The record is a 493-nucleotide part of an RNA from Aegilops tauschii, which matches "Eukaryotic large subunit ribosomal RNA" in Rfam. The organism belongs to Aegilops tauschii, within Eukaryota. A search with the family's covariance model found it, with a score of 3048 bits.
[Rfam]
RNA sequence: CCCUCCGAAGUUUCCCUCAGGAUAGCUGGAGCCCAUUACGAGUUCUAUCAGGUAAAGCCAAUGAUUAGAGGCAUUGGGGACGCAACGUCCUCGACCUAUUCUCAAACUUUAAAUAGGUAGGAUGGCGCGGCUGCUUCGGUGAGCCGUGCCACGAAAUCGGGUGCUCCAAGUGGGCCAUUUUUGGUAAGCAGAAUUGGCGAUGCGGGAUGAACCCGAAGCCGGGUUACGGUGCCCAACUGCGCGCUAACCUAGAACCCACAAAGGGUGUUGGUCGAUUAAGACAGCAGGACGGUGGUCAUGGAAGUCGAAAUCCGCUAAGGAGUGUGUAACAACUCACCUAUCGAAUCAACUAGCCCAGAAAAUGGAUGGCGCUGAAGCGCGCGACCCACACCCGGCCAUCUGGGCGAGCGCCAUGCCCCGAUGAGUAGGAGGGCACGGCGGCCGCUGCAAAACCCGGGGCGCGAGCCCGGGCGGAGCGGCCGUCGGUGCAGAU
Numbered sequence: 001c002c003c004u005c006c007g008a009a010g011u012u013u014c015c016c017u018c019a020g021g022a023u024a025g026c027u028g029g030a031g032c033c034c035a036u037u038a039c040g041a042g043u044u045c046u047a048u049c050a051g052g053u054a055a056a057g058c059c060a061a062u063g064a065u066u067a068g069a070g071g072c073a074u075u076g077g078g079g080a081c082g083c084a085a086c087g088u089c090c091u092c093g094a095c096c097u098a099u100u101c102u103c104a105a106a107c108u109u110u111a112a113a114u115a116g117g118u119a120g121g122a123u124g125g126c127g128c129g130g131c132u133g134c135u136u137c138g139g140u141g142a143g144c145c146g147u148g149c150c151a152c153g154a155a156a157u158c159g160g161g162u163g164c165u166c167c168a169a170g171u172g173g174g175c176c177a178u179u180u181u182u183g184g185u186a187a188g189c190a191g192a193a194u195u196g197g198c199g200a201u202g203c204g205g206g207a208u209g210a211a212c213c214c215g216a217a218g219c220c221g222g223g224u225u226a227c228g229g230u231g232c233c234c235a236a237c238u239g240c241g242c243g244c245u246a247a248c249c250u251a252g253a254a255c256c257c258a259c260a261a262a263g264g265g266u267g268u269u270g271g272u273c274g275a276u277u278a279a280g281a282c283a284g285c286a287g288g289a290c291g292g293u294g295g296u297c298a299u300g301g302a303a304g305u306c307g308a309a310a311u312c313c314g315c316u317a318a319g320g321a322g323u324g325u326g327u328a329a330c331a332a333c334u335c336a337c338c339u340a341u342c343g344a345a346u347c348a349a350c351u352a353g354c355c356c357a358g359a360a361a362a363u364g365g366a367u368g369g370c371g372c373u374g375a376a377g378c379g380c381g382c383g384a385c386c387c388a389c390a391c392c393c394g395g396c397c398a399u400c401u402g403g404g405c406g407a408g409c410g411c412c413a414u415g416c417c418c419c420g421a422u423g424a425g426u427a428g429g430a431g432g433g434c435a436c437g438g439c440g441g442c443c444g445c446u447g448c449a450a451a452a453c454c455c456g457g458g459g460c461g462c463g464a465g466c467c468c469g470g471g472c473g474g475a476g477c478g479g480c481c482g483u484c485g486g487u488g489c490a491g492a493u
Base pairs, nucleotide, nucleotide: 001433002432003431004430005429006428011024013022014021015020027168028167029166030165031164032163043122044121045120046119047118048117049116055110056108057107062104063103064102067099069097070096071095074094075093076092077091078090079089081087124150125149126148127147128146129145130144131143132142174198175197176196177195179193180192181191182190183189204213205212218396219395220394221393222392224390228386229385230384237383239382242379243378244377264356265355267354268353269352270351271350272349274347275346276345284341286339287338288337290314291313292312296308297307315319320335324333325332397423398422399421400420402418403417404416405415434488436485437484438483439482440481441480442479443478444477445476453471458467459466460465
Dot-bracket structure: ((((((....(.(((....))).)..((((((..........(((((((.....(((....(((..(.(((..((((((.(.....).))))))))).)..)))..)).).....))))))).(((((((((.........)))))))))............)))))).....((((.(((((.....))))).)))).....((......))....(((((.(...(((......(.(..(((...................((.((((((.(((.......(.(((.(((...((.........))...)))(...)(...((......)).).))).)...))).))))))))....................)))..)))))...).)))))((((.((((.........)))).))))....))))))(.((((((((((.......(....(((....)))...)....))))))))))..).....